[Rfam]
RNA sequence: GCACAAGGUAGAGGCCAAGAACCCCGCCCCUACGGAAGACGGGCACCCUUCGGGGGCGUGGGGAGCCAGUGGUGCGACCGGCUACCUUCUAU
Numbered sequence: 001g002c003a004c005a006a007g008g009u010a011g012a013g014g015c016c017a018a019g020a021a022c023c024c025c026g027c028c029c030c031u032a033c034g035g036a037a038g039a040c041g042g043g044c045a046c047c048c049u050u051c052g053g054g055g056g057c058g059u060g061g062g063g064a065g066c067c068a069g070u071g072g073u074g075c076g077a078c079c080g081g082c083u084a085c086c087u088u089c090u091a092u
Base pairs, nucleotide, nucleotide: 001092003090005088006087007086008085009084010083011082013067014066015065022061023060025058026057027056028055029054041079042078043075044074045073046072047071

Shown here is a 92-nucleotide sequence, a member of the family "c-di-GMP-II-GAG riboswitch aptamer". For this family Rfam cites "Bioinformatic analysis of riboswitch structures uncovers variant classes with altered ligand specificity" (Weinberg et al., Proc Natl Acad Sci U S A, 2017). The sequence is in the family's curated seed alignment. Clan: c-di-GMP_II riboswitch clan.